[Rfam]
RNA sequence: AGCUGAACAUGGGGGGCCAUAGAAAGAACGUUCACGUUGCGGCCCCUGUCAGGUAUCUGUUUACCUGCGAAUCCUUCU
Number, nucleotide and partner (000 for none) at each position: 001a000002g000003c000004u000005g000006a000007a000008c000009a000010u000011g000012g000013g046014g045015g044016g043017c042018c041019a000020u000021a078022g077023a076024a075025a000026g073027a072028a000029c039030g038031u000032u000033c000034a000035c000036g000037u000038u030039g029040c000041g018042g017043c016044c015045c014046c013047u000048g000049u000050c067051a066052g065053g064054u063055a062056u000057c000058u000059g000060u000061u000062u055063a054064c053065c052066u051067g050068c000069g000070a000071a000072u027073c026074c000075u024076u023077c022078u021

Rfam assigns this 78-nucleotide sequence from Laticauda laticaudata to the family "Mammalian CPEB3 ribozyme".
Taxonomically the source falls in Laticauda (Eukaryota, Bilateria, Deuterostomia, Teleostomi).
The base pairs follow the family's consensus structure, which is taken from published work.
The literature on the family includes a 2004 paper in Nature by Teixeira et al., "Autocatalytic RNA cleavage in the human beta-globin pre-mRNA promotes transcription termination".